skipping-rope RNA: an 81-nucleotide sequence from Heliorestis acidaminivorans. It scores 58 bits against the family's covariance model.

[Rfam]
RNA sequence: AAUCUUUGAGGUGCGGAACAGGUAGCCGCCGCCCAUCGAAAGGUGUUAGGAGAUGCAGGAAGAGCCACCCUGCCGAAGAUC
Numbered sequence: 001a002a003u004c005u006u007u008g009a010g011g012u013g014c015g016g017a018a019c020a021g022g023u024a025g026c027c028g029c030c031g032c033c034c035a036u037c038g039a040a041a042g043g044u045g046u047u048a049g050g051a052g053a054u055g056c057a058g059g060a061a062g063a064g065c066c067a068c069c070c071u072g073c074c075g076a077a078g079a080u081c
Stems, first nucleotide, its partner, number of pairs: 002080007011030001013029004021066003032050001034045004055073005
By type it is a small RNA.